RNA: MIR168 microRNA precursor family
Organism: Citrus x clementina
RNA sequence: UUACCGGCGGUCUCUAAUUCGCUUGGUGCAGGUCGGGAACUGAUUGGCUAGUUUUUUUUUUGAAAUUUUUUGACAGCGAGGUGGCGUGUUGUAAUUGGUCGUAACGUUUAAAUUAAUGAUUGAAAAAAUGCGAAUUGGAUCCCGCCUUGCAUCAACUGAAUCGGAGACCGAGGUGAGA
Number, nucleotide and partner (000 for none) at each position: 001u000002u000003a000004c000005c000006g000007g000008c000009g000010g000011u000012c000013u165014c164015u000016a000017a161018u160019u159020c158021g000022c000023u155024u154025g153026g152027u151028g150029c149030a148031g147032g146033u000034c144035g143036g142037g141038a140039a000040c138041u137042g136043a135044u134045u133046g000047g000048c000049u000050a000051g000052u000053u000054u000055u000056u000057u000058u000059u000060u000061u000062g000063a000064a000065a000066u000067u000068u000069u000070u000071u000072g000073a000074c000075a000076g000077c000078g000079a000080g000081g000082u000083g000084g000085c000086g000087u000088g000089u000090u000091g000092u000093a000094a000095u000096u000097g000098g000099u000100c000101g000102u000103a000104a000105c000106g000107u000108u000109u000110a000111a000112a000113u000114u000115a000116a000117u000118g000119a000120u000121u000122g000123a000124a000125a000126a000127a000128a000129u000130g000131c000132g000133a045134a044135u043136u042137g041138g040139a000140u038141c037142c036143c035144g034145c000146c032147u031148u030149g029150c028151a027152u026153c025154a024155a023156c000157u000158g020159a019160a018161u017162c000163g000164g014165a013166g000167a000168c000169c000170g000171a000172g000173g000174u000175g000176a000177g000178a000